[Rfam]
About this RNA: Rfam assigns this 87-nucleotide RNA to the family "Plastid-psbM 3UTR RNA". The base pairs follow the family's consensus structure, which was predicted with LocARNA. Rfam's curators write: Plastid psbM is a non-coding RNA (ncRNA) recognised in plastids. For this family Rfam cites "Retrograde signaling in plants: A critical review focusing on the GUN pathway and beyond" (Richter et al., Plant Commun, 2023).
RNA sequence: CGAUAGUAUGGUAGAAAAAAAAAUAUGAAUCUUUCUACCAUACUAUCUAUAUCUAUUAUUGUAAUGUAUAAAGAUACAAGCUUAAUA
Numbered sequence: 001c002g003a004u005a006g007u008a009u010g011g012u013a014g015a016a017a018a019a020a021a022a023a024u025a026u027g028a029a030u031c032u033u034u035c036u037a038c039c040a041u042a043c044u045a046u047c048u049a050u051a052u053c054u055a056u057u058a059u060u061g062u063a064a065u066g067u068a069u070a071a072a073g074a075u076a077c078a079a080g081c082u083u084a085a086u087a
Stems, first nucleotide, its partner, number of pairs: 002047016019030001